[Rfam]
RNA sequence: AUGCAUCCAGCUAGAAUUGAACCUACAAAUUUGGCAAUUAUAUGAGUUAGGCGCUUUAAACAUUCAGCCGUGGAUGC
Numbered sequence: 001a002u003g004c005a006u007c008c009a010g011c012u013a014g015a016a017u018u019g020a021a022c023c024u025a026c027a028a029a030u031u032u033g034g035c036a037a038u039u040a041u042a043u044g045a046g047u048u049a050g051g052c053g054c055u056u057u058a059a060a061c062a063u064u065c066a067g068c069c070g071u072g073g074a075u076g077c
Stems, first nucleotide, its partner, number of pairs: 003077006010026001014022001042071003046068003050064002053061001
Plastid-ycf2 5UTR RNA: a 77-nucleotide RNA sequence from Macleaya cordata. Plastid ycf2 is a non-coding RNA (ncRNA) recognised in plastids. It was found in the prime untranslated region (5UTR) of ycf2 genes, it presents a tRNA-like motif which suggests it can be involved in mRNA maturation, particularly involved in defining the precise 5' end of the transcript. Rfam classes the family as a cis-regulatory element. NCBI's taxonomy places the organism under Eukaryota, Embryophyta, Tracheophyta, Euphyllophyta, Macleaya. A reference for the family is Richter et al. (2023), "Retrograde signaling in plants: A critical review focusing on the GUN pathway and beyond", Plant Commun.